[Rfam]
A member of the RNA family "Selenocysteine transfer RNA" from Arsenophonus endosymbiont of Aphis craccivora, 91 nucleotides long.
It scores 75 bits against the family's covariance model.

RNA sequence: GGAAGAUCAUCGUCCCCGGUGGGGUGGCUGGACUUCAAAUCCAGAUGGGGACGCAAGCGGUCCUUGGCAGGUUCGAAUCCUGUGGUCUUCC
Numbered sequence: 001g002g003a004a005g006a007u008c009a010u011c012g013u014c015c016c017c018g019g020u021g022g023g024g025u026g027g028c029u030g031g032a033c034u035u036c037a038a039a040u041c042c043a044g045a046u047g048g049g050g051a052c053g054c055a056a057g058c059g060g061u062c063c064u065u066g067g068c069a070g071g072u073u074c075g076a077a078u079c080c081u082g083u084g085g086u087c088u089u090c091c
Stems, first nucleotide, its partner, number of pairs: 001091009011026006028044005047065005068082004